[Rfam]
RNA sequence: UCGAAGUUCAUCUACAAUGGAUAGAUUUUGUCUUAGUGUAUACGAUCGUUUGAAAAACCAAAGGUAGCAAUACCCCAUGUCUUGCUUAGCAAGACAGGGGGAUUGAUACUUU
Numbered sequence: 001u002c003g004a005a006g007u008u009c010a011u012c013u014a015c016a017a018u019g020g021a022u023a024g025a026u027u028u029u030g031u032c033u034u035a036g037u038g039u040a041u042a043c044g045a046u047c048g049u050u051u052g053a054a055a056a057a058c059c060a061a062a063g064g065u066a067g068c069a070a071u072a073c074c075c076c077a078u079g080u081c082u083u084g085c086u087u088a089g090c091a092a093g094a095c096a097g098g099g100g101g102a103u104u105g106a107u108a109c110u111u112u
Stems, first nucleotide, its partner, number of pairs: 008020004061112006068105004073100001075098002079095005
RNA: Plastid-psbA-1 3UTR RNA